Description:
Group II catalytic intron D1-D4-6: a 218-nucleotide sequence from Lachnospiraceae bacterium A2. The organism belongs to Lachnospiraceae, within Bacteria. The pairing is the family consensus, mapped onto this sequence. A search with the family's covariance model found it, with a score of 177 bits. About the family: Group II introns are found in rRNA, tRNA and mRNA of organelles in fungi, plants and protists, and also in mRNA in bacteria.
[Rfam]
RNA sequence: AGAAGCCUGUCUGCGAAGGUCUAACCAACCAGCAGUAGCGAGUCUUGGGUGGGCUGCAGUAAUGUUGCCUGCUAAGCGUAGACAGCGAGAAAAUAGGGAAAGUGAUUGAGCCCCGAAAUUUUGACAUUCGGAGGGCUGACGCUCUAAUUUCGGCGGAAAGCAACACAGGCGGCAUUGCUAUGGUGAGAUGCAGCCUGCUUCUGCGGGGUCAAAGAGCU
Numbered sequence: 001a002g003a004a005g006c007c008u009g010u011c012u013g014c015g016a017a018g019g020u021c022u023a024a025c026c027a028a029c030c031a032g033c034a035g036u037a038g039c040g041a042g043u044c045u046u047g048g049g050u051g052g053g054c055u056g057c058a059g060u061a062a063u064g065u066u067g068c069c070u071g072c073u074a075a076g077c078g079u080a081g082a083c084a085g086c087g088a089g090a091a092a093a094u095a096g097g098g099a100a101a102g103u104g105a106u107u108g109a110g111c112c113c114c115g116a117a118a119u120u121u122u123g124a125c126a127u128u129c130g131g132a133g134g135g136c137u138g139a140c141g142c143u144c145u146a147a148u149u150u151c152g153g154c155g156g157a158a159a160g161c162a163a164c165a166c167a168g169g170c171g172g173c174a175u176u177g178c179u180a181u182g183g184u185g186a187g188a189u190g191c192a193g194c195c196u197g198c199u200u201c202u203g204c205g206g207g208g209u210c211a212a213a214g215a216g217c218u
Stems, first nucleotide, its partner, number of pairs: 011035004018030003022186001024184002038086002042083004046078002048073007056065003107212001108210001110209006129203006135161003140155004166197005172191005